[Rfam]
RNA sequence: AAAGAAGAAAAAUUUGUUCUGAAAUAUUGUCCAGAGCAAGUUUGAAGAGGAAAACAA
Number, nucleotide and partner (000 for none) at each position: 001a000002a000003a000004g000005a000006a000007g000008a000009a000010a000011a000012a041013u040014u039015u038016g037017u036018u035019c034020u033021g032022a000023a000024a000025u000026a000027u000028u000029g000030u000031c000032c021033a020034g019035a018036g017037c016038a015039a014040g013041u012042u000043u000044g000045a000046a000047g000048a000049g000050g000051a000052a000053a000054a000055c000056a000057a000